Shown here is an 89-nucleotide RNA sequence from Eurystomus gularis, a member of the family "Small nucleolar SNORD12/SNORD106". The literature on the family includes a 2003 paper in Nucleic Acids Res by Vitali et al., "Identification of 13 novel human modification guide RNAs". Clan: SNORD12 clan. Lineage of the source: Eukaryota > Teleostomi > Telluraves > Coraciimorphae > Eurystomus. By type it is a C/D-box small nucleolar RNA. The family's consensus secondary structure was predicted with RNAalifold. A search with the family's covariance model found it, with a score of 74 bits.

RNA sequence: GCUGGUGUAAGUGAUGACAAUUCUUUCCCCAACAGAGCGACACUGUUGAUUUCUCACUGUUCAAGCCAAAUCAUGUCUGAUGCACCAGC
Dot-bracket structure: (((((((((.......................................................................)))))))))
Numbered sequence: 001g002c003u004g005g006u007g008u009a010a011g012u013g014a015u016g017a018c019a020a021u022u023c024u025u026u027c028c029c030c031a032a033c034a035g036a037g038c039g040a041c042a043c044u045g046u047u048g049a050u051u052u053c054u055c056a057c058u059g060u061u062c063a064a065g066c067c068a069a070a071u072c073a074u075g076u077c078u079g080a081u082g083c084a085c086c087a088g089c
Stems, first nucleotide, its partner, number of pairs: 001089009